[Rfam]
RNA: Transposase-2 RNA
Nucleotides: 069
Stems, first nucleotide, its partner, number of pairs: 011042005018031005046065008
Number, partner (000 for none) and nucleotide at each position: 001000g002000a003000a004000g005000u006000g007000c008000g009000a010000a011042c012041c013040g014039a015038g016000c017000g018031g019030c020029u021028g022027c023000c024000u025000u026000g027022g028021c029020a030019g031018c032000g033000c034000g035000a036000g037000a038015c039014u040013c041012g042011g043000a044000g045000u046065g047064g048063u049062c050061g051060u052059c053058a054000g055000c056000a057000a058053u059052g060051g061050c062049g063048a064047c065046c066000u067000a068000c069000a